A member of the RNA family "int-alpA RNA" from Nitrosomonas sp. AL212, 69 nucleotides long. The family's consensus secondary structure is taken from published work.
[Rfam]
RNA sequence: CCGCUGCCUACCUCGACGGAGGGAAAAGCCAGAUACCUUUGCUGGCCUGACAGUGGCUUCUUUGAAAGG
Numbered sequence: 001c002c003g004c005u006g007c008c009u010a011c012c013u014c015g016a017c018g019g020a021g022g023g024a025a026a027a028g029c030c031a032g033a034u035a036c037c038u039u040u041g042c043u044g045g046c047c048u049g050a051c052a053g054u055g056g057c058u059u060c061u062u063u064g065a066a067a068g069g
Stems, first nucleotide, its partner, number of pairs: 001056006008049001011022004028046005036069005
It is annotated as a small RNA. The sequence is in the family's curated seed alignment. Taxonomically the source falls in Nitrosomonas (Bacteria, Pseudomonadati, Pseudomonadota, Nitrosomonadaceae). About the family: Acidobacteria (1 example), Planctomycetes (1 example), Proteobacteria.